[Rfam]
RNA sequence: GCGAUGAGCUGUUUGUGUAAGACGAAGUAUAUGCCUUCGAGGCUAAACGACGAAUGUGGUCGUCGGUACAUUCGCGACAAAAGAUCGAAAGCUUUCCCUGAAACACGGGAAAGCU
Numbered sequence: 001g002c003g004a005u006g007a008g009c010u011g012u013u014u015g016u017g018u019a020a021g022a023c024g025a026a027g028u029a030u031a032u033g034c035c036u037u038c039g040a041g042g043c044u045a046a047a048c049g050a051c052g053a054a055u056g057u058g059g060u061c062g063u064c065g066g067u068a069c070a071u072u073c074g075c076g077a078c079a080a081a082a083g084a085u086c087g088a089a090a091g092c093u094u095u096c097c098c099u100g101a102a103a104c105a106c107g108g109g110a111a112a113g114c115u
Stems, first nucleotide, its partner, number of pairs: 013080004023074004027069004033043002048065005090115009
BsrF: a 115-nucleotide RNA sequence from Halobacillus andaensis. A reference for the family is Saito et al. (2008), "Novel small RNA-encoding genes in the intergenic regions of Bacillus subtilis", Gene. Pairs were carried over by alignment from the consensus structure, which was predicted with WAR. A search with the family's covariance model found it, with a score of 64 bits. Rfam classes the family as a small RNA.